[Rfam]
RNA: Ribosomal protein L10 leader
Organism: Cytobacillus depressus
RNA sequence: UAUAUAUAUACAUUUGUACCGUAGACAGCAGGUGCCCAUGCUUAAUAUCCUGCCGAGGUCAUACGAUAGAUUUUCAGUUUGCCUAUUGUAUACUCCCUCCAUGUCUACUUGAUGUGGAGGUUUAUUAUUGAACGG
Numbered sequence: 001u002a003u004a005u006a007u008a009u010a011c012a013u014u015u016g017u018a019c020c021g022u023a024g025a026c027a028g029c030a031g032g033u034g035c036c037c038a039u040g041c042u043u044a045a046u047a048u049c050c051u052g053c054c055g056a057g058g059u060c061a062u063a064c065g066a067u068a069g070a071u072u073u074u075c076a077g078u079u080u081g082c083c084u085a086u087u088g089u090a091u092a093c094u095c096c097c098u099c100c101a102u103g104u105c106u107a108c109u110u111g112a113u114g115u116g117g118a119g120g121u122u123u124a125u126u127a128u129u130g131a132a133c134g135g
Stems, first nucleotide, its partner, number of pairs: 028053005034041002096120010